[Rfam]
RNA sequence: GCUUUGGUGAUGAGGCUCUGGAAUAAGCACUGGCACGUGGCUGGAGUAAGAUUGUGCAGGAAUUUGUCUCCUUGCCUGCCUUCUGAGAACAGC
Numbered sequence: 001g002c003u004u005u006g007g008u009g010a011u012g013a014g015g016c017u018c019u020g021g022a023a024u025a026a027g028c029a030c031u032g033g034c035a036c037g038u039g040g041c042u043g044g045a046g047u048a049a050g051a052u053u054g055u056g057c058a059g060g061a062a063u064u065u066g067u068c069u070c071c072u073u074g075c076c077u078g079c080c081u082u083c084u085g086a087g088a089a090c091a092g093c
Base pairs, nucleotide, nucleotide: 001093002092003091005089
The family of this 93-nucleotide RNA sequence from Canis lupus is "Small nucleolar RNA U83B".
It scores 50 bits against the family's covariance model.
Rfam links the family to the GO terms RNA processing and nucleolus.
The organism belongs to Canis lupus, within Eukaryota.
The family's RNA type in Rfam is C/D-box small nucleolar RNA.
The literature on the family includes a 2000 paper in Nucleic Acids Res by Jady and Kiss, "Characterisation of the U83 and U84 small nucleolar RNAs: two novel 2'-O-ribose methylation guide RNAs that lack complementarities to ribosomal RNAs".